A member of the RNA family "Small nucleolar RNA snoR53Y" from Kingdonia uniflora, 79 nucleotides long.

[Rfam]
RNA sequence: GUUUCCAGUGAUUUAGAUACAACCAUGCUAAUUCUGAUAUUCAUUGAUGAUUCAGUUUUUUCUAUUUUCUGAGGAAACA
Dot-bracket structure: (((((....................................................................))))).
Numbered sequence: 001g002u003u004u005c006c007a008g009u010g011a012u013u014u015a016g017a018u019a020c021a022a023c024c025a026u027g028c029u030a031a032u033u034c035u036g037a038u039a040u041u042c043a044u045u046g047a048u049g050a051u052u053c054a055g056u057u058u059u060u061u062c063u064a065u066u067u068u069c070u071g072a073g074g075a076a077a078c079a
Stems, first nucleotide, its partner, number of pairs: 001078005
The literature on the family includes a 2001 paper in RNA by Brown et al., "Multiple snoRNA gene clusters from Arabidopsis". Pairs were carried over by alignment from the consensus structure, which was predicted with WAR. By type it is a C/D-box small nucleolar RNA. The match comes from Rfam's covariance-model search (59 bits).